[Rfam]
RNA sequence: ACGUGAGUUGGGUCCGGGCCUGUAUUGGGGCUCAACGAGUUCGGCAAGGCUCAGGAGGGCCUGGCUGAACGUCCUUAAGAGUGCAAAG
Numbered sequence: 001a002c003g004u005g006a007g008u009u010g011g012g013u014c015c016g017g018g019c020c021u022g023u024a025u026u027g028g029g030g031c032u033c034a035a036c037g038a039g040u041u042c043g044g045c046a047a048g049g050c051u052c053a054g055g056a057g058g059g060c061c062u063g064g065c066u067g068a069a070c071g072u073c074c075u076u077a078a079g080a081g082u083g084c085a086a087a088g
Base pairs, nucleotide, nucleotide: 007036008035009034010033011032012031013030014029015028018026037073038072039070040069041068042067043066044065045064047062048061049060050059051058052057